[Rfam]
Shown here is a 76-nucleotide RNA sequence from Jaculus jaculus, a member of the family "mir-3473 microRNA precursor family". Rfam 15.1 lists 1,094 matches to the family in 20 species. The organism belongs to Jaculus, within Eukaryota.
RNA sequence: ACUGCUAAGCCAUCUCUCCAGCCCUACUUUUUAUUAUUUUGAAAAUAUUUCGGGGCUGGAGAGAUGGCUUAGCAGU
Number, nucleotide and partner (000 for none) at each position: 001a000002c075003u074004g073005c072006u071007a070008a069009g068010c067011c066012a065013u064014c063015u062016c061017u060018c059019c058020a057021g056022c055023c054024c053025u000026a000027c000028u000029u000030u000031u000032u000033a000034u000035u000036a000037u000038u000039u000040u000041g000042a000043a000044a000045a000046u000047a000048u000049u000050u000051c000052g000053g024054g023055g022056c021057u020058g019059g018060a017061g016062a015063g014064a013065u012066g011067g010068c009069u008070u007071a006072g005073c004074a003075g002076u000